[Rfam]
RNA: FMN riboswitch aptamer (RFN element)
RNA sequence: GCGCGUUCUCAGGGCGGGGUGUAAUUCCCCACCGGCGGUAUCUGCCAUUUGAACCGGCAGGAGCCCGCGAGCGCCCGGCCUGGGGCCGGGGUCAGCAGAUCUGGUGCGACGCCAGAGCCGACGGUUACAGUCCGGAUGAAAGAGAUCGCGA
Numbered sequence: 001g002c003g004c005g006u007u008c009u010c011a012g013g014g015c016g017g018g019g020u021g022u023a024a025u026u027c028c029c030c031a032c033c034g035g036c037g038g039u040a041u042c043u044g045c046c047a048u049u050u051g052a053a054c055c056g057g058c059a060g061g062a063g064c065c066c067g068c069g070a071g072c073g074c075c076c077g078g079c080c081u082g083g084g085g086c087c088g089g090g091g092u093c094a095g096c097a098g099a100u101c102u103g104g105u106g107c108g109a110c111g112c113c114a115g116a117g118c119c120g121a122c123g124g125u126u127a128c129a130g131u132c133c134g135g136a137u138g139a140a141a142g143a144g145a146u147c148g149c150g151a
Stems, first nucleotide, its partner, number of pairs: 003149003007145004017029003031131002033120002035068004063118002071096002100116005122134003